The family of this 99-nucleotide sequence from Sphingomonas chungangi is "Manganese Mn2+ riboswitch aptamer (yybP-ykoY)". Rfam links the family to the GO term manganese ion binding. Taxonomically the source falls in Sphingomonas (Bacteria, Alphaproteobacteria, Sphingomonadales, Sphingomonadaceae). The family has 29 seed sequences and 1,126 matches in Rfam 15.1. About the family: This RNA was originally discovered in E. coli during a large scale screen and was named SraF. The family was later found to exist upstream of related families of protein genes in many bacteria, including the the yybP and ykoK genes in B. subtilis. The specific functions of these proteins are unknown, but this structured RNA element may be involved in their genetic regulation as a riboswitch.

[Rfam]
RNA sequence: GCAACCGUUCCUGGGGAGUAGCCACCCGCGCGUUGAGCGGGGCCUUCGUCAACAUGCUUGGCCCUCUGGCCAUGGCGAAGGCGGCGGAUGUUUCCGCCC
Numbered sequence: 001g002c003a004a005c006c007g008u009u010c011c012u013g014g015g016g017a018g019u020a021g022c023c024a025c026c027c028g029c030g031c032g033u034u035g036a037g038c039g040g041g042g043c044c045u046u047c048g049u050c051a052a053c054a055u056g057c058u059u060g061g062c063c064c065u066c067u068g069g070c071c072a073u074g075g076c077g078a079a080g081g082c083g084g085c086g087g088a089u090g091u092u093u094c095c096g097c098c099c
Stems, first nucleotide, its partner, number of pairs: 026040003042082010059072005